This 69-nucleotide sequence from Ornithorhynchus anatinus belongs to the Rfam family "mir-3116 microRNA precursor family". Gene Ontology terms of the family: miRNA-mediated post-transcriptional gene silencing and RISC complex. It scores 67 bits against the family's covariance model.
RNA sequence: UGUUAAAUGCUUACCAUGUACCAGGCACCGUCCUAAGCACAGUGCCUGGUACAUGGUAAGCAUUUAACA
Numbered sequence: 001u002g003u004u005a006a007a008u009g010c011u012u013a014c015c016a017u018g019u020a021c022c023a024g025g026c027a028c029c030g031u032c033c034u035a036a037g038c039a040c041a042g043u044g045c046c047u048g049g050u051a052c053a054u055g056g057u058a059a060g061c062a063u064u065u066a067a068c069a
Base pairs, nucleotide, nucleotide: 001069002068003067004066005065006064007063008062009061010060011059012058013057014056015055016054017053018052019051020050021049022048023047024046025045026044027043028042
Annotation: NCBI's taxonomy places the organism under Eukaryota, Opisthokonta, Deuterostomia, Sarcopterygii, Ornithorhynchus. The base pairs follow the family's consensus structure, which was predicted with RNAalifold.